[Rfam]
RNA sequence: CGGAACCGACAGGGGAGCGCGCACAGCGCUGAGAGUGCGGUGUCGCCGGAGCAGCCGAGAGGCCGCCCGGGGAGCCGCAGACCCUCGGACCUGAUCCGGUUAGUACCGGCGUAGGGAGUCAGAAGAAAGUGCAC
Numbered sequence: 001c002g003g004a005a006c007c008g009a010c011a012g013g014g015g016a017g018c019g020c021g022c023a024c025a026g027c028g029c030u031g032a033g034a035g036u037g038c039g040g041u042g043u044c045g046c047c048g049g050a051g052c053a054g055c056c057g058a059g060a061g062g063c064c065g066c067c068c069g070g071g072g073a074g075c076c077g078c079a080g081a082c083c084c085u086c087g088g089a090c091c092u093g094a095u096c097c098g099g100u101u102a103g104u105a106c107c108g109g110c111g112u113a114g115g116g117a118g119u120c121a122g123a124a125g126a127a128a129g130u131g132c133a134c
Stems, first nucleotide, its partner, number of pairs: 006122001008120003011085004017029004036079005090115004096109004
Annotation:
This 134-nucleotide RNA sequence from Streptomyces radiopugnans belongs to the Rfam family "TPP riboswitch aptamer (THI element)". It scores 58 bits against the family's covariance model.